Shown here is a 357-nucleotide part of an RNA from Thermogymnomonas acidicola, a member of the family "Archaeal large subunit ribosomal RNA". The source organism's lineage runs through Archaea, Methanobacteriati, Thermoplasmatota, Thermoplasmata and Thermogymnomonas. It scores 2826 bits against the family's covariance model. The literature on the family includes a 2001 paper in Science by Yusupov et al., "Crystal structure of the ribosome at 5.5 A resolution".

[Rfam]
RNA sequence: GGGUCUAAUGGACGCGAGGGAACUCGGCCAAAUAGCUCCGUAUCUUCGGUAGAAGGAGUGCCUAUCCCGGGAGGGGAUAGGUCGCAGUGGCAAGGGGACUCCGACUGUUUACCAAAAACACAGGUCGCUGCUAGUUCGAAAGGAUGUGUAUAGCGGCCGAAACCUGCCCAGUGUCGGUACCUGAAAGCCCCGUCCAAGGGGAAGAAGGGCCGAUAAACGGCGGGGGUAACUAUGACCCUCUUAAGGUAGCGUAAUACCUAGCCGCUUAAUUGGCGGCUUGCAUGAAGGUUCAACGUGGGUCCCACUGUCCCCGCGUUCAGCCCCGUGAAAUCGAUGCACUGGUGCACAAUCCAGUCU
Numbered sequence: 001g002g003g004u005c006u007a008a009u010g011g012a013c014g015c016g017a018g019g020g021a022a023c024u025c026g027g028c029c030a031a032a033u034a035g036c037u038c039c040g041u042a043u044c045u046u047c048g049g050u051a052g053a054a055g056g057a058g059u060g061c062c063u064a065u066c067c068c069g070g071g072a073g074g075g076g077a078u079a080g081g082u083c084g085c086a087g088u089g090g091c092a093a094g095g096g097g098a099c100u101c102c103g104a105c106u107g108u109u110u111a112c113c114a115a116a117a118a119c120a121c122a123g124g125u126c127g128c129u130g131c132u133a134g135u136u137c138g139a140a141a142g143g144a145u146g147u148g149u150a151u152a153g154c155g156g157c158c159g160a161a162a163c164c165u166g167c168c169c170a171g172u173g174u175c176g177g178u179a180c181c182u183g184a185a186a187g188c189c190c191c192g193u194c195c196a197a198g199g200g201g202a203a204g205a206a207g208g209g210c211c212g213a214u215a216a217a218c219g220g221c222g223g224g225g226g227u228a229a230c231u232a233u234g235a236c237c238c239u240c241u242u243a244a245g246g247u248a249g250c251g252u253a254a255u256a257c258c259u260a261g262c263c264g265c266u267u268a269a270u271u272g273g274c275g276g277c278u279u280g281c282a283u284g285a286a287g288g289u290u291c292a293a294c295g296u297g298g299g300u301c302c303c304a305c306u307g308u309c310c311c312c313g314c315g316u317u318c319a320g321c322c323c324c325g326u327g328a329a330a331u332c333g334a335u336g337c338a339c340u341g342g343u344g345c346a347c348a349a350u351c352c353a354g355u356c357u
Stems, first nucleotide, its partner, number of pairs: 001324003009319008018310003035059005044049001060082009083087001095303007102295002106120003123158008131148001134145004161290004166221003171218002173214005180209003188201004222240006241245001261277006338355005